A member of the RNA family "eL15-Euryarchaeota ribosomal protein leader" from Halococcus saccharolyticus, 67 nucleotides long.

RNA sequence: CCUGCGUGAUACUGCAGGUCGGAAUGUGGCCAGCGUGGUCCCCCGGACCACGCGGCUGAACCAUCAA
Numbered sequence: 001c002c003u004g005c006g007u008g009a010u011a012c013u014g015c016a017g018g019u020c021g022g023a024a025u026g027u028g029g030c031c032a033g034c035g036u037g038g039u040c041c042c043c044c045g046g047a048c049c050a051c052g053c054g055g056c057u058g059a060a061c062c063a064u065c066a067a
Stems, first nucleotide, its partner, number of pairs: 001018005021062002028057004
Record summary: It is one of the family's seed sequences. The source organism's lineage runs through Archaea, Halobacteriales, Halococcaceae, Halococcus and Halococcus saccharolyticus. For this family Rfam cites "Discovery of 20 novel ribosomal leader candidates in bacteria and archaea" (Eckert and Weinberg, BMC Microbiol, 2020). The family's RNA type in Rfam is cis-regulatory leader.